[Rfam]
RNA: mir-2188 microRNA precursor family
Organism: Xenopus tropicalis
RNA sequence: GCGUGUGGGAAAGGUCCAGCCUCAUAUGUCCUGUGAUCCUGAGGGGGAGAUAUGUGGUCAGACCUGUCCCACAGGC
Numbered sequence: 001g002c003g004u005g006u007g008g009g010a011a012a013g014g015u016c017c018a019g020c021c022u023c024a025u026a027u028g029u030c031c032u033g034u035g036a037u038c039c040u041g042a043g044g045g046g047g048a049g050a051u052a053u054g055u056g057g058u059c060a061g062a063c064c065u066g067u068c069c070c071a072c073a074g075g076c
Stems, first nucleotide, its partner, number of pairs: 001076002004073007012065005019058003023054005030047003